The record is a 121-nucleotide sequence from Vitreoscilla filiformis, which matches "Glycine riboswitch aptamer" in Rfam. Rfam's curators write: This family represents the bacterial glycine riboswitch. Glycine riboswitches usually consist of two metabolite-binding aptamers domains with similar structures in tandem. The aptamers cooperatively bind glycine to regulate the expression of downstream genes. In Bacillus subtilis, this riboswitch is found upstream of the gcvT operon which controls glycine degradation. Gene Ontology term of the family: glycine biosynthetic process. NCBI's taxonomy places the organism under Bacteria, Pseudomonadati, Neisseriales, Neisseriaceae, Vitreoscilla.
[Rfam]
RNA sequence: CGCCUCCUGUCAGGAGAGAGCGCGGGCUUCCACAAGACGCCCCGCCGCCGAAGGCGCAGAAGCACCGGCCCGCCACCGCCGCCCGCUUCGAACGCUCAGGCAAAAGGACUGGCAGGCGCUG
Numbered sequence: 001c002g003c004c005u006c007c008u009g010u011c012a013g014g015a016g017a018g019a020g021c022g023c024g025g026g027c028u029u030c031c032a033c034a035a036g037a038c039g040c041c042c043c044g045c046c047g048c049c050g051a052a053g054g055c056g057c058a059g060a061a062g063c064a065c066c067g068g069c070c071c072g073c074c075a076c077c078g079c080c081g082c083c084c085g086c087u088u089c090g091a092a093c094g095c096u097c098a099g100g101c102a103a104a105a106g107g108a109c110u111g112g113c114a115g116g117c118g119c120u121g
Stems, first nucleotide, its partner, number of pairs: 006116008020045003047101003050097002054095003059089005